Shown here is an 84-nucleotide RNA from Hibiscus syriacus, a member of the family "small nucleolar RNA snoR117". The family has 6 seed sequences and 419 matches in Rfam 15.1. By type it is a C/D-box small nucleolar RNA.
[Rfam]
RNA sequence: UGCCUGUGAUGUUCACAAAUUUGUCCGUACCAUCUGAGAUUAAUAUCUCUGAUGCAUUCAUUUGAAAUUUAUUUUCUGAGGCAU
Number, nucleotide and partner (000 for none) at each position: 001u083002g082003c081004c080005u000006g000007u000008g000009a000010u000011g000012u000013u000014c000015a000016c000017a000018a000019a000020u000021u000022u000023g000024u000025c000026c000027g000028u000029a000030c000031c000032a000033u000034c000035u000036g000037a000038g000039a000040u000041u000042a000043a000044u000045a000046u000047c000048u000049c000050u000051g000052a000053u000054g000055c000056a000057u000058u000059c000060a000061u000062u000063u000064g000065a000066a000067a000068u000069u000070u000071a000072u000073u000074u000075u000076c000077u000078g000079a000080g004081g003082c002083a001084u000
Pairs were carried over by alignment from the consensus structure, which was predicted with RNAalifold.